[Rfam]
RNA: RAGATH-18 RNA
Organism: Fusobacterium polymorphum
RNA sequence: ACUAUGGAGAGUACAAGGAACUAUGAGUAGAUACUAUGUAUUGAAAGUAUGCUCGUUGAAGUAGUAA
Number, nucleotide and partner (000 for none) at each position: 001a065002c064003u063004a062005u061006g000007g000008a000009g054010a053011g052012u051013a050014c000015a000016a000017g000018g000019a000020a000021c000022u049023a048024u047025g000026a000027g000028u000029a000030g042031a041032u040033a000034c038035u000036a000037u000038g034039u000040a032041u031042u030043g000044a000045a000046a000047g024048u023049a022050u013051g012052c011053u010054c009055g000056u000057u000058g000059a000060a000061g005062u004063a003064g002065u001066a000067a000